[Rfam]
RNA sequence: GUAGGGUAUGGUGACAUCUAUCCUAAAACUUUAUUGGGAAAAAUCGUGGGAGGCCUCUGCUGUAUAGCUGGGGUGCUAGUGAUUGCUCUUCCCAUUCCAAUCAUUGUGAACAAU
Numbered sequence: 001g002u003a004g005g006g007u008a009u010g011g012u013g014a015c016a017u018c019u020a021u022c023c024u025a026a027a028a029c030u031u032u033a034u035u036g037g038g039a040a041a042a043a044u045c046g047u048g049g050g051a052g053g054c055c056u057c058u059g060c061u062g063u064a065u066a067g068c069u070g071g072g073g074u075g076c077u078a079g080u081g082a083u084u085g086c087u088c089u090u091c092c093c094a095u096u097c098c099a100a101u102c103a104u105u106g107u108g109a110a111c112a113a114u
Stems, first nucleotide, its partner, number of pairs: 001114002004111001007108005013102002020095002037077002040074001049063001051061001

Rfam assigns this 114-nucleotide RNA from Sarcophilus harrisii to the family "Potassium channel RNA editing signal". Rfam links the family to the GO term adenosine to inosine editing. Rfam's curators write: This family represents a group of sequences related to the human potassium channel Kv1.1 hairpin element which directs the efficient modification of an adenosine to inosine by an adenosine deaminase acting on RNA (ADAR). The ADAR modification causes an isoleucine/valine recoding event which lies in the ion-conducting pore of the potassium channel. It scores 81 bits against the family's covariance model. The base pairs follow the family's consensus structure, which is taken from published work. NCBI's taxonomy places the organism under Eukaryota, Deuterostomia, Mammalia, Dasyuromorphia, Sarcophilus.